[Rfam]
The family of this 79-nucleotide sequence from Amphiprion percula is "mir-181 microRNA precursor family". A search with the family's covariance model found it, with a score of 50 bits. Lineage of the source: Eukaryota > Bilateria > Eurypterygia > Ctenosquamata > Amphiprion.
RNA sequence: GGAAUCCGGUUCACAUUCAUCGCUGUCGGUGGGUUGAUGAUGCCGUCAACUCGCCGGUCGAUGAAUGACAACCGUGUCC
Numbered sequence: 001g002g003a004a005u006c007c008g009g010u011u012c013a014c015a016u017u018c019a020u021c022g023c024u025g026u027c028g029g030u031g032g033g034u035u036g037a038u039g040a041u042g043c044c045g046u047c048a049a050c051u052c053g054c055c056g057g058u059c060g061a062u063g064a065a066u067g068a069c070a071a072c073c074g075u076g077u078c079c
Stems, first nucleotide, its partner, number of pairs: 004077002007074002014067009025058007033050004